[Rfam]
RNA: Purine riboswitch aptamer
RNA sequence: UACAUAAUUUAAUUAUGUCGUCGUAUAACGUUGGGAAUAAGGCCCAAAAGUCUCUACCGGAUCACCGUAAAUGAUCCGACUACGAUGAGUGAUGCUUAUUUA
Numbered sequence: 001u002a003c004a005u006a007a008u009u010u011a012a013u014u015a016u017g018u019c020g021u022c023g024u025a026u027a028a029c030g031u032u033g034g035g036a037a038u039a040a041g042g043c044c045c046a047a048a049a050g051u052c053u054c055u056a057c058c059g060g061a062u063c064a065c066c067g068u069a070a071a072u073g074a075u076c077c078g079a080c081u082a083c084g085a086u087g088a089g090u091g092a093u094g095c096u097u098a099u100u101u102a
Base pairs, nucleotide, nucleotide: 018088019087020086021085022084023083024082025081031047032046033045034044035043058078059077060076061075062074063073064072